[Rfam]
RNA sequence: UCACGAUAAGGGCAAACCCUGAGUGAUCAGGGGACGCAAAGGAAAGGGUCUUUCAGCGCACAGGGAAGUGUGAGGGGAUCAGAAAAGUCCUUUGGAAUAAUUUAGGGAAGUAGUUGAGAAAGAUAGCCUUACUGCCGGA
Numbered sequence: 001u002c003a004c005g006a007u008a009a010g011g012g013c014a015a016a017c018c019c020u021g022a023g024u025g026a027u028c029a030g031g032g033g034a035c036g037c038a039a040a041g042g043a044a045a046g047g048g049u050c051u052u053u054c055a056g057c058g059c060a061c062a063g064g065g066a067a068g069u070g071u072g073a074g075g076g077g078a079u080c081a082g083a084a085a086a087g088u089c090c091u092u093u094g095g096a097a098u099a100a101u102u103u104a105g106g107g108a109a110g111u112a113g114u115u116g117a118g119a120a121a122g123a124u125a126g127c128c129u130u131a132c133u134g135c136c137g138g139a
Base pairs, nucleotide, nucleotide: 012037013036017032018031019030020029021028022027040133041132043130045129046128047127048124049123050122051121052120053119054118
c-di-GMP-I riboswitch aptamer: a 139-nucleotide RNA from Candidatus Brocadia fulgida. The family's consensus secondary structure is taken from published work. The match comes from Rfam's covariance-model search (54 bits).